This 388-nucleotide RNA from Leptospira interrogans belongs to the Rfam family "Bacterial RNase P class A".
The family is grouped with related families in Rfam's "RNaseP clan".
The organism belongs to Leptospira interrogans serovar Lai, within Bacteria.
Gene Ontology terms of the family: tRNA processing, dimeric ribonuclease P complex and ribonuclease P activity.
Rfam classes the family as a ribozyme.
A search with the family's covariance model found it, with a score of 266 bits.
[Rfam]
RNA sequence: GCAUUCUGUCGGAUGAUCGCGCUUCUUUUUUAGAAAUAAAAAGGGUGAGGAAAGUCCGGACACCUGGAAACACGGGACCGGGUAAUUCCCGGAAUUCUCUAUCUUGAGAGUAAUUUCAGGAUCGAGAAUAUGGAAAGUGCAACAGAAAAGAUACCGCCUUGGUAAAAGGUAAGGGUGAAAUGGUGGGGUAAGAGCCCACCUACGAUUUCGAGAGAAAUCGGGAAUGGCAAACCCUCCCGGGUGCAAUCUCAAAUAGGCAGCCUAUUUGUAGUUUCCGCAGGGCUGCGGGUAGAGAGCAAGGACUUCGAUCGGUAACUUUCGAAGCAAGAUAAAUGAUCAUCCAUCUCUUAGGAGAGGACAGAAUCCGGCUUAUAGACAGAAUGCCCGU
Numbered sequence: 001g002c003a004u005u006c007u008g009u010c011g012g013a014u015g016a017u018c019g020c021g022c023u024u025c026u027u028u029u030u031u032a033g034a035a036a037u038a039a040a041a042a043g044g045g046u047g048a049g050g051a052a053a054g055u056c057c058g059g060a061c062a063c064c065u066g067g068a069a070a071c072a073c074g075g076g077a078c079c080g081g082g083u084a085a086u087u088c089c090c091g092g093a094a095u096u097c098u099c100u101a102u103c104u105u106g107a108g109a110g111u112a113a114u115u116u117c118a119g120g121a122u123c124g125a126g127a128a129u130a131u132g133g134a135a136a137g138u139g140c141a142a143c144a145g146a147a148a149a150g151a152u153a154c155c156g157c158c159u160u161g162g163u164a165a166a167a168g169g170u171a172a173g174g175g176u177g178a179a180a181u182g183g184u185g186g187g188g189u190a191a192g193a194g195c196c197c198a199c200c201u202a203c204g205a206u207u208u209c210g211a212g213a214g215a216a217a218u219c220g221g222g223a224a225u226g227g228c229a230a231a232c233c234c235u236c237c238c239g240g241g242u243g244c245a246a247u248c249u250c251a252a253a254u255a256g257g258c259a260g261c262c263u264a265u266u267u268g269u270a271g272u273u274u275c276c277g278c279a280g281g282g283c284u285g286c287g288g289g290u291a292g293a294g295a296g297c298a299a300g301g302a303c304u305u306c307g308a309u310c311g312g313u314a315a316c317u318u319u320c321g322a323a324g325c326a327a328g329a330u331a332a333a334u335g336a337u338c339a340u341c342c343a344u345c346u347c348u349u350a351g352g353a354g355a356g357g358a359c360a361g362a363a364u365c366c367g368g369c370u371u372a373u374a375g376a377c378a379g380a381a382u383g384c385c386c387g388u
Base pairs, nucleotide, nucleotide: 001384002383003382004381005380006379007378008377009376010375011373012341013340014339015338016337017336018335020047021046022045023044024043026041027040028039052371053370054369056368057367058366059365060364061243062242063241064240069274070273073239074238075237076236077235078092079091080090081089082088093131094129095128096127097126098125099124132234133233137232138231139228140227154174155173156170157169158168159167160166182200183199184198185197186196187195201223203220204219205218206217207216208215209214247295248294249293250292257286258285259284260283261282262281266280267279268278269277303324304323305322306321307320308319311316